Shown here is a 142-nucleotide sequence from Merluccius polli, a member of the family "Small nucleolar RNA SNORA29". From the family's description: ACA29 is a member of the H/ACA class of snoRNA that guide the sites of modification of uridines to pseudouridines. It scores 58 bits against the family's covariance model.
[Rfam]
RNA sequence: AUUCCUGUUUUACUACUGCCCAUCUGACUCCCCAGAGAUGUGUGGCUAUGCUAACGGGAUAGAGUGAAUGUCCAUCAUUGUCUGAGGAGGUUUUGGCUGUCUCAUCCCGCUACCUCUAAAUGAAAUGAUUGCACAUGUCUAG
Number, nucleotide and partner (000 for none) at each position: 001a000002u000003u000004c058005c057006u056007g055008u000009u000010u000011u000012a000013c000014u000015a000016c045017u044018g043019c042020c000021c000022a000023u000024c000025u000026g000027a000028c000029u000030c000031c000032c000033c000034a000035g000036a000037g000038a000039u000040g000041u000042g019043u018044g017045g016046c000047u000048a000049u000050g000051c000052u000053a000054a000055c007056g006057g005058g004059a000060u000061a000062g000063a000064g000065u000066g000067a000068a000069u000070g000071u000072c000073c000074a129075u128076c127077a126078u000079u000080g000081u000082c000083u000084g000085a000086g000087g000088a117089g116090g115091u000092u000093u000094u000095g000096g000097c000098u000099g000100u000101c000102u000103c000104a000105u000106c000107c000108c000109g000110c000111u000112a000113c000114c000115u090116c089117u088118a000119a000120a000121u000122g000123a000124a000125a000126u077127g076128a075129u074130u000131g000132c000133a000134c000135a000136u000137g000138u000139c000140u000141a000142g000
The family is grouped with related families in Rfam's "SNORA20 clan". Rfam classes the family as an H/ACA-box small nucleolar RNA.